RNA sequence: GUUGGGUAGGUUUGACUCCUGCCUGUAGCCCGUGCGGGGACCAAUGGAGCGCAGGGAGCAUGGGAAUGAAGGCCAAUUCCGCUGAAAGUCGCCAUUGGGCGGCUUCCAGAGUUUGCAUGAGCACGGCGUGGGGGUGUCCACUUGGAGUCUGGUGUUUGGCAUUGGCACGCUGGCGUAGGCCUGGGCGUGCUCAAGGCUAUUGAAUAGCUGGGCAAAGCGUGAGGCUGGCAACAGAGCAACGAAAACCGGCAGCACUAGUUCAGUCAAGGGACUGCAUCUCCUCGUCACUGCCUCUGGAUUGGGGCUGGCCGACCAUGCAACCUGCGUUUUU
Numbered sequence: 001g002u003u004g005g006g007u008a009g010g011u012u013u014g015a016c017u018c019c020u021g022c023c024u025g026u027a028g029c030c031c032g033u034g035c036g037g038g039g040a041c042c043a044a045u046g047g048a049g050c051g052c053a054g055g056g057a058g059c060a061u062g063g064g065a066a067u068g069a070a071g072g073c074c075a076a077u078u079c080c081g082c083u084g085a086a087a088g089u090c091g092c093c094a095u096u097g098g099g100c101g102g103c104u105u106c107c108a109g110a111g112u113u114u115g116c117a118u119g120a121g122c123a124c125g126g127c128g129u130g131g132g133g134g135u136g137u138c139c140a141c142u143u144g145g146a147g148u149c150u151g152g153u154g155u156u157u158g159g160c161a162u163u164g165g166c167a168c169g170c171u172g173g174c175g176u177a178g179g180c181c182u183g184g185g186c187g188u189g190c191u192c193a194a195g196g197c198u199a200u201u202g203a204a205u206a207g208c209u210g211g212g213c214a215a216a217g218c219g220u221g222a223g224g225c226u227g228g229c230a231a232c233a234g235a236g237c238a239a240c241g242a243a244a245a246c247c248g249g250c251a252g253c254a255c256u257a258g259u260u261c262a263g264u265c266a267a268g269g270g271a272c273u274g275c276a277u278c279u280c281c282u283c284g285u286c287a288c289u290g291c292c293u294c295u296g297g298a299u300u301g302g303g304g305c306u307g308g309c310c311g312a313c314c315a316u317g318c319a320a321c322c323u324g325c326g327u328u329u330u331u
Stems, first nucleotide, its partner, number of pairs: 001041003004024007029038003047329009058318006068309001071306004079302003083298001086295001088288002130281008138270002141268005147261001149258007157199004162194004166189006172181003200206001207250005218241003225234003